[Rfam]
RNA sequence: AGGCGUUGUCGGUUGGGUCAGUGGCACGUGCUCUCCCUGUAACCCUAUCUCGCAGCCCCGAGAACA
Numbered sequence: 001a002g003g004c005g006u007u008g009u010c011g012g013u014u015g016g017g018u019c020a021g022u023g024g025c026a027c028g029u030g031c032u033c034u035c036c037c038u039g040u041a042a043c044c045c046u047a048u049c050u051c052g053c054a055g056c057c058c059c060g061a062g063a064a065c066a
Stems, first nucleotide, its partner, number of pairs: 002059002005056005015045003

Shown here is a 66-nucleotide sequence from Trypanosoma cruzi, a member of the family "Trypanosomatid snoRNA TB10Cs2H1".
The family has 4 seed sequences and 34 matches in Rfam 15.1.
Rfam's curators put it in the seed alignment.
It is annotated as an H/ACA-box small nucleolar RNA.
The organism belongs to Schizotrypanum, within Eukaryota.
Pairs were carried over by alignment from the consensus structure, which was predicted with WAR.